The family of this 73-nucleotide RNA from Fidelibacterota bacterium PRS2 is "tRNA". Gene Ontology term of the family: triplet codon-amino acid adaptor activity. The match comes from Rfam's covariance-model search (66 bits). The family's consensus secondary structure is taken from published work.

[Rfam]
Nucleotides: 073
Base pairs, nucleotide, nucleotide: 001072002071003070004069005068006067007066010025011024012023013022027043028042029041030040031039049065050064051063052062053061
Number, partner (000 for none) and nucleotide at each position: 001072a002071g003070g004069u005068g006067a007066g008000u009000a010025g011024u012023u013022c014000a015000a016000u017000u018000g019000g020000u021000a022013g023012a024011g025010c026000a027043c028042c029041g030040g031039c032000c033000u034000c035000c036000a037000a038000a039031g040030c041029c042028g043027g044000g045000a046000g047000u048000u049065g050064a051063g052062g053061g054000u055000u056000c057000g058000a059000g060000u061053c062052c063051u064050u065049c066007c067006u068005c069004a070003c071002c072001u073000g